[Rfam]
RNA sequence: UGUGGUUGGAGUUCUGUGCACCCAGCAGACUUCUGGUGGGAUGUUCAAAAAGCAGUGCUAUACCAGUGCAGCAUUUGGCAUCCUUGGUUUUCAGUCUGCUGUGCCUGUUAAACCUGGUAUUUUUGCUGAAGCAGUC
Numbered sequence: 001u002g003u004g005g006u007u008g009g010a011g012u013u014c015u016g017u018g019c020a021c022c023c024a025g026c027a028g029a030c031u032u033c034u035g036g037u038g039g040g041a042u043g044u045u046c047a048a049a050a051a052g053c054a055g056u057g058c059u060a061u062a063c064c065a066g067u068g069c070a071g072c073a074u075u076u077g078g079c080a081u082c083c084u085u086g087g088u089u090u091u092c093a094g095u096c097u098g099c100u101g102u103g104c105c106u107g108u109u110a111a112a113c114c115u116g117g118u119a120u121u122u123u124u125g126c127u128g129a130a131g132c133a134g135u136c
Base pairs, nucleotide, nucleotide: 002058003057004056006054014052015051017049018044019043020042022040023039024037026035027034028033061125062124065121066120067119069116070115071114077105078104079103080102081101

Small nucleolar RNA SNORA8: a 136-nucleotide RNA sequence from Urocynchramus pylzowi. Lineage of the source: Eukaryota > Chordata > Dipnotetrapodomorpha > Passeroidea > Urocynchramus. Rfam describes the family as follows. ACA8 is a member of the H/ACA class of snoRNA that guide the sites of modification of uridines to pseudouridines. The family is grouped with related families in Rfam's "SNORA8 clan".